[Rfam]
RNA: Bacterial large subunit ribosomal RNA, nucleotides 625 to 854
Organism: Companilactobacillus allii
RNA sequence: GAGUUACGUUUGCAUGCAAGGUUAAGCAGAAAAUGCGGAGCCGUAGCGAAAGCGAGUCUGAAUAGGGCGACUAAGUAUGUAGACGUAGACCCGAAACCAAGUGACCUACCCAUGUCCAGGUUGAAGGUGCGGUAAAACGCACUGGAGGACCGAACUCAUGUAUGUUGAAAAAUGCUGAGAUGAGGUGUGGGUAGCGGUGAAAUUCCAAACGAACUUGGAGAUAGCUGGUU
Numbered sequence: 001g002a003g004u005u006a007c008g009u010u011u012g013c014a015u016g017c018a019a020g021g022u023u024a025a026g027c028a029g030a031a032a033a034u035g036c037g038g039a040g041c042c043g044u045a046g047c048g049a050a051a052g053c054g055a056g057u058c059u060g061a062a063u064a065g066g067g068c069g070a071c072u073a074a075g076u077a078u079g080u081a082g083a084c085g086u087a088g089a090c091c092c093g094a095a096a097c098c099a100a101g102u103g104a105c106c107u108a109c110c111c112a113u114g115u116c117c118a119g120g121u122u123g124a125a126g127g128u129g130c131g132g133u134a135a136a137a138c139g140c141a142c143u144g145g146a147g148g149a150c151c152g153a154a155c156u157c158a159u160g161u162a163u164g165u166u167g168a169a170a171a172a173u174g175c176u177g178a179g180a181u182g183a184g185g186u187g188u189g190g191g192u193a194g195c196g197g198u199g200a201a202a203u204u205c206c207a208a209a210c211g212a213a214c215u216u217g218g219a220g221a222u223a224g225c226u227g228g229u230u
Base pairs, nucleotide, nucleotide: 005087006086007085008084009083010082011081012080013079014078015077016076017075020042021041022040023039026036027035028034046053047052056068057067058066059065090228091227093225097218098217099216100215101214102213106194107193108192109191110190111189112188113187114186115185116184117182119151120150121149122148126143127142128141129140130139131138155179156178157177160175161174162173163172196206197205